This 132-nucleotide RNA sequence from Pipistrellus kuhlii belongs to the Rfam family "Small nucleolar RNA SNORA44". A reference for the family is Huttenhofer et al. (2001), "RNomics: an experimental approach that identifies 201 candidates for novel, small, non-messenger RNAs in mouse", EMBO J. Rfam's curators write: ACA44 is a member of the H/ACA class of snoRNA that guide the sites of modification of uridines to pseudouridines. Gene Ontology terms of the family: nucleolus and RNA processing. It is annotated as an H/ACA-box small nucleolar RNA. Pairs were carried over by alignment from the consensus structure, which was predicted with PFOLD. The match comes from Rfam's covariance-model search (102 bits).

RNA sequence: CAGCAUGUUUCCAAGGGCUGUGGCUGGUUGUAGCCAUGGUUCUCCAACUGCAUGGGAGAGCAACCUGGAGAAACUGACAGCUUAGGUCAAUGUCACAACUCAAGGCAGCUGCCACUCGCCUUUCCUGUAAUU
Dot-bracket structure: ..........((...(((((((......)))))))..))...........................(((((........((.(.....................).....))........))))).......